[Rfam]
RNA sequence: GGAGUGUCCCGGGGCCACCUCUUUGGUUCUGUACAUAUUUUGUUAUUGUACAUAACCAUGGAGUUGGCUGUGGUGCACUC
Numbered sequence: 001g002g003a004g005u006g007u008c009c010c011g012g013g014g015c016c017a018c019c020u021c022u023u024u025g026g027u028u029c030u031g032u033a034c035a036u037a038u039u040u041u042g043u044u045a046u047u048g049u050a051c052a053u054a055a056c057c058a059u060g061g062a063g064u065u066g067g068c069u070g071u072g073g074u075g076c077a078c079u080c
Base pairs, nucleotide, nucleotide: 002080003079004078005077006076007075009073010072011071013069014068015067016066017065019063020062021061022060024058025057026056027055028054030052031051032050033049034048035047036045037044

Overview: Shown here is an 80-nucleotide RNA sequence from Lymphocryptovirus humangamma4, a member of the family "mir-BART10 microRNA precursor family". Pairs were carried over by alignment from the consensus structure, which was predicted with RNAalifold. Gene Ontology terms of the family: RISC complex and miRNA-mediated post-transcriptional gene silencing. Rfam 15.1 lists 5 matches to the family in 2 species.